[Rfam]
RNA sequence: UCUUGGAGUCGCGACUGGCGUCAGGUGGAUCACCACCGGGGAGCGACGAGUCAUGCCGACGACGGGUCGUUCGCCUGGGCCCUGGGU
Numbered sequence: 001u002c003u004u005g006g007a008g009u010c011g012c013g014a015c016u017g018g019c020g021u022c023a024g025g026u027g028g029a030u031c032a033c034c035a036c037c038g039g040g041g042a043g044c045g046a047c048g049a050g051u052c053a054u055g056c057c058g059a060c061g062a063c064g065g066g067u068c069g070u071u072c073g074c075c076u077g078g079g080c081c082c083u084g085g086g087u
Stems, first nucleotide, its partner, number of pairs: 003050002008047005015040002017075004025036004064082005

Description: Rfam assigns this 87-nucleotide sequence from Promicromonospora soli to the family "ZMP/ZTP riboswitch aptamer (pfl RNA motif)". NCBI's taxonomy places the organism under Bacteria, Bacillati, Actinomycetes, Micrococcales, Promicromonospora. The family's consensus secondary structure is taken from published work.